[Rfam]
RNA sequence: CGUCUCCUCCACCUCCUCCUUGGUGGAUUCAAGCCCAGGCCGAUGGCCCGGGCUUUUUUUU
Dot-bracket structure: .......((((((........))))))....(((((.((.......)).))))).......
Numbered sequence: 001c002g003u004c005u006c007c008u009c010c011a012c013c014u015c016c017u018c019c020u021u022g023g024u025g026g027a028u029u030c031a032a033g034c035c036c037a038g039g040c041c042g043a044u045g046g047c048c049c050g051g052g053c054u055u056u057u058u059u060u061u
Stems, first nucleotide, its partner, number of pairs: 008027006032054005038048002